[Rfam]
RNA sequence: GGGCUGGCUUUAGCCCAUCGGUUCCUUCGAGUCUGGCUUCCCAACCGCCCAGGGCCAAUUGGUCCAGUGGUUCGAGACCCGAGGGCGCUCUCCAGUCCUUUA
Numbered sequence: 001g002g003g004c005u006g007g008c009u010u011u012a013g014c015c016c017a018u019c020g021g022u023u024c025c026u027u028c029g030a031g032u033c034u035g036g037c038u039u040c041c042c043a044a045c046c047g048c049c050c051a052g053g054g055c056c057a058a059u060u061g062g063u064c065c066a067g068u069g070g071u072u073c074g075a076g077a078c079c080c081g082a083g084g085g086c087g088c089u090c091u092c093c094a095g096u097c098c099u100u101u102a
Base pairs, nucleotide, nucleotide: 002097003096004095005094006093007092013086014085015084016083018082019081020080021079026076027075028074029073030072
Rfam assigns this 102-nucleotide RNA sequence from Cavia porcellus to the family "Vault RNA". The organism belongs to Cavia, within Eukaryota. It is annotated as a non-coding RNA gene. Rfam's curators write: This family of RNAs are found as part of the enigmatic vault ribonucleoprotein complex. The base pairs follow the family's consensus structure, which is taken from published work.